A member of the RNA family "RNase MRP" from Cicer arietinum, 257 nucleotides long. Pairs were carried over by alignment from the consensus structure, which is taken from published work.
[Rfam]
Nucleotides: 257
Base pairs, nucleotide, nucleotide: 002257003256004255005254006253007252008251009250014207015206016205017204018203019202021044022043023042024041025040026039027038048243049242050241052240053239054238055237066077067076068075069074079092080091081090082089083088096173097172102168103167104166106165107164108163112160113159114158115157125152140147141146209226210225211224212223
Number, partner (000 for none) and nucleotide at each position: 001000a002257u003256g004255g005254a006253u007252c008251g009250a010000g011000a012000c013000g014207a015206u016205g017204u018203g019202g020000a021044u022043g023042g024041g025040c026039c027038u028000u029000u030000g031000c032000a033000a034000u035000g036000c037000a038027g039026g040025g041024c042023u043022c044021a045000g046000g047000a048243a049242a050241g051000u052240c053239c054238c055237c056000g057000g058000g059000c060000c061000c062000a063000g064000u065000c066077u067076g068075c069074a070000g071000a072000a073000a074069u075068g076067u077066a078000g079092g080091c081090c082089u083088g084000g085000c086000a087000a088083c089082a090081g091080g092079u093000a094000a095000a096173u097172c098000u099000c100000u101000a102168a103167g104166c105000u106165g107164g108163a109000g110000c111000u112160u113159g114158g115157u116000u117000c118000a119000c120000a121000c122000c123000u124000a125152g126000g127000u128000g129000u130000g131000a132000g133000g134000g135000c136000u137000g138000a139000g140147a141146c142000a143000u144000g145000u146141g147140u148000g149000g150000a151000g152125c153000c154000u155000g156000u157115g158114c159113c160112a161000g162000u163108u164107c165106c166104g167103c168102u169000g170000g171000a172097g173096a174000a175000a176000a177000u178000u179000g180000g181000c182000c183000a184000a185000u186000u187000g188000u189000u190000a191000c192000a193000g194000u195000c196000a197000u198000u199000c200000a201000u202019u203018c204017a205016c206015a207014u208000g209226g210225u211224c212223a213000c214000a215000u216000c217000a218000u219000a220000a221000g222000u223212u224211g225210a226209c227000u228000u229000a230000a231000c232000a233000g234000a235000a236000c237055g238054g239053g240052g241050c242049u243048u244000a245000c246000g247000u248000c249000u250009u251008u252007g253006g254005u255004c256003c257002a